The record is a 139-nucleotide sequence from Gloeocapsa sp. PCC 7428, which matches "c-di-AMP riboswitch aptamer (ydaO/yuaA leader)" in Rfam.
Rfam describes the family as follows. This family represents a conserved RNA structure found upstream of the ydaO and yuaA genes in Bacillus subtilis and related genes in other bacteria.
[Rfam]
RNA sequence: GUAGCUCACUUGCAGCAUUUGGUCUGAAAUGAGUCUGGAGCGGAGGAACCAAACCCUAGGGGCGUAUCUGUAAAUUACAGAAGGAUAACUCUCUAUCCUAGCCCGUCAGCUAACUUCGUAGGCGUUGAGAGGAGACUGA
Numbered sequence: 001g002u003a004g005c006u007c008a009c010u011u012g013c014a015g016c017a018u019u020u021g022g023u024c025u026g027a028a029a030u031g032a033g034u035c036u037g038g039a040g041c042g043g044a045g046g047a048a049c050c051a052a053a054c055c056c057u058a059g060g061g062g063c064g065u066a067u068c069u070g071u072a073a074a075u076u077a078c079a080g081a082a083g084g085a086u087a088a089c090u091c092u093c094u095a096u097c098c099u100a101g102c103c104c105g106u107c108a109g110c111u112a113a114c115u116u117c118g119u120a121g122g123c124g125u126u127g128a129g130a131g132g133a134g135a136c137u138g139a
Base pairs, nucleotide, nucleotide: 005038006037040119041118042117043116044115045114050059060104061103062102068080069079070078071077083098084097085096086095